RNA sequence: UAAUGAGGUAGAGGCGCAAAGCGAAUGAGUAAACUGUGGAGCUUGGGAAGCAUUGAAGCAGUUAGAAAGGUCAAUUUGCCGAAGUUAAGAAUUAGCCCCCCUUAAUUCUUUGCUGGGUCGUUGUUGAAUAAAUAACGGACUGUCACUGCACUGCAGUGGAGGACUACUUUAAUA
Number, nucleotide and partner (000 for none) at each position: 001u000002a000003a000004u000005g000006a169007g168008g167009u166010a165011g164012a000013g000014g000015c000016g079017c078018a077019a076020a075021g000022c000023g072024a071025a000026u000027g000028a000029g000030u000031a000032a063033a062034c061035u060036g059037u058038g000039g000040a000041g000042c000043u000044u000045g000046g000047g000048a000049a000050g000051c000052a000053u000054u000055g000056a000057a000058g037059c036060a035061g034062u033063u032064a000065g000066a000067a000068a000069g000070g000071u024072c023073a000074a000075u020076u019077u018078g017079c016080c000081g000082a000083a114084g113085u112086u000087a110088a109089g108090a107091a106092u105093u104094a103095g000096c000097c000098c000099c000100c000101c000102u000103u094104a093105a092106u091107u090108c089109u088110u087111u000112g085113c084114u083115g141116g140117g000118u138119c137120g136121u135122u134123g133124u132125u131126g000127a000128a000129u000130a000131a125132a124133u123134a122135a121136c120137g119138g118139a000140c116141u115142g000143u159144c158145a157146c156147u155148g154149c153150a000151c000152u000153g149154c148155a147156g146157u145158g144159g143160a000161g000162g000163a000164c011165u010166a009167c008168u007169u006170u000171a000172a000173u000174a000

Description
Lysine riboswitch aptamer: a 174-nucleotide RNA from Anaerobacillus isosaccharinicus. The family's consensus secondary structure is taken from published work. The source organism's lineage runs through Bacteria, Bacillati, Bacillota, Caryophanales and Anaerobacillus. Rfam links the family to the GO term lysine biosynthetic process.